[Rfam]
RNA sequence: AAAUAGGGUAUUGUUUUAACUCAUAUAUCUUUGGAGAUUGGUCCAAAAGUUUCUACCGGAUGACCGGAAUCGUCCGACUAUGAGGGGUGUAUUUCCCUUC
Dot-bracket structure: ...................((((((....((((((......)))))).........(((((((......)))))))..))))))................

Shown here is a 100-nucleotide RNA sequence from Peptococcaceae bacterium CEB3, a member of the family "Purine riboswitch aptamer".
The match comes from Rfam's covariance-model search (68 bits).
Rfam links the family to the GO term purine nucleobase biosynthetic process.